[Rfam]
RNA: Group II catalytic intron D1-D4-2
Organism: Massilia cavernae
RNA sequence: GGGAGCAGGCCUCCCGAAAUCGGCUUGCAGGAGCUGGUUUCAAACCACCCAGUGCUGCUGUGUUCAAAAGACAUGGUGGUGAGCGACUGUGGAAAAGGCGCCAAGAAAGGUGUCAGGU
Numbered sequence: 001g002g003g004a005g006c007a008g009g010c011c012u013c014c015c016g017a018a019a020u021c022g023g024c025u026u027g028c029a030g031g032a033g034c035u036g037g038u039u040u041c042a043a044a045c046c047a048c049c050c051a052g053u054g055c056u057g058c059u060g061u062g063u064u065c066a067a068a069a070g071a072c073a074u075g076g077u078g079g080u081g082a083g084c085g086a087c088u089g090u091g092g093a094a095a096a097g098g099c100g101c102c103a104a105g106a107a108a109g110g111u112g113u114c115a116g117g118u
Base pairs, nucleotide, nucleotide: 001015002014003013004012005011016041017040018039019038020037021036023034024033025032026031046117048092049091050089051088052087053086054080055079057077058076059075061073062072063071064070097114098113099112100111101110102109